[Rfam]
RNA: EFASI RNA
Organism: Citrobacter youngae
RNA sequence: AUGAACAGUACCGGAGGCGGAUCACGACGAUCCGGGGGCAUCCCUGCUGAGGCAGGCGGCCUGCACACUGUGCAGUACCGUACCCCACCAUACCUCAACUCUCGCCUUCCGGCGCACCGGUAUUGUUCA
Numbered sequence: 001a002u003g004a005a006c007a008g009u010a011c012c013g014g015a016g017g018c019g020g021a022u023c024a025c026g027a028c029g030a031u032c033c034g035g036g037g038g039c040a041u042c043c044c045u046g047c048u049g050a051g052g053c054a055g056g057c058g059g060c061c062u063g064c065a066c067a068c069u070g071u072g073c074a075g076u077a078c079c080g081u082a083c084c085c086c087a088c089c090a091u092a093c094c095u096c097a098a099c100u101c102u103c104g105c106c107u108u109c110c111g112g113c114g115c116a117c118c119g120g121u122a123u124u125g126u127u128c129a
Stems, first nucleotide, its partner, number of pairs: 002129012018034006035086004043056005057080003062074005